A member of the RNA family "serC leader" from Loktanella fryxellensis, 52 nucleotides long. Rfam links the family to the GO term regulation of gene expression. About the family: This family is a putative regulatory RNA structure that is found upstream of the serC-serA operon in some alpha-proteobacteria. The organism belongs to Loktanella, within Bacteria.
[Rfam]
RNA sequence: CGAUGGGACACCCUUCCCCAACGAAGGGCGAAUAUCUGUGAGGAUACCAGAG
Number, nucleotide and partner (000 for none) at each position: 001c000002g000003a000004u000005g000006g000007g000008a000009c000010a000011c028012c027013c026014u025015u024016c023017c000018c000019c000020a000021a000022c000023g016024a015025a014026g013027g012028g011029c000030g000031a000032a000033u046034a045035u044036c043037u042038g000039u000040g000041a000042g037043g036044a035045u034046a033047c000048c000049a000050g000051a000052g000